[Rfam]
Shown here is an 80-nucleotide sequence from Alligator mississippiensis, a member of the family "Mammalian CPEB3 ribozyme". It scores 37 bits against the family's covariance model. Its family is annotated with RNA nuclease activity in the Gene Ontology. The source organism's lineage runs through Eukaryota, Eumetazoa, Dipnotetrapodomorpha, Archosauria and Alligator. Pairs were carried over by alignment from the consensus structure, which is taken from published work.
RNA sequence: AGAGGUCUCAAGUUUGAGGUCACAGCAGAAGCACUCGCAGCAUGGCCCUGUCAGAUUCCCGCGAAUCCGUGAAUUCUGCU
Numbered sequence: 001a002g003a004g005g006u007c008u009c010a011a012g013u014u015u016g017a018g019g020u021c022a023c024a025g026c027a028g029a030a031g032c033a034c035u036c037g038c039a040g041c042a043u044g045g046c047c048c049u050g051u052c053a054g055a056u057u058c059c060c061g062c063g064a065a066u067c068c069g070u071g072a073a074u075u076c077u078g079c080u
Base pairs, nucleotide, nucleotide: 016048018047019046020045021044024080025079026078027077028076029075030074031043052069054067055066056065057064058063